[Rfam]
RNA sequence: GUGGAUAUAGUUCAGUUGGUUAGAACGCCAGAUUGUGGCUCUGGAGGCCGUGGGUUCGAGUCCCACUAUCCACC
Numbered sequence: 001g002u003g004g005a006u007a008u009a010g011u012u013c014a015g016u017u018g019g020u021u022a023g024a025a026c027g028c029c030a031g032a033u034u035g036u037g038g039c040u041c042u043g044g045a046g047g048c049c050g051u052g053g054g055u056u057c058g059a060g061u062c063c064c065a066c067u068a069u070c071c072a073c074c
Base pairs, nucleotide, nucleotide: 001073002072003071004070005069006068007067010026011025012024013023028044029043030042031041032040050066051065052064053063054062
The family of this 74-nucleotide sequence from Thermoanaerobacteraceae bacterium SP2 is "tRNA". It scores 73 bits against the family's covariance model. Clan: tRNA clan. The base pairs follow the family's consensus structure, which is taken from published work. It is annotated as a transfer RNA. For this family Rfam cites "The tertiary structure of tRNA and the development of the genetic code" (Hou, Trends Biochem Sci, 1993).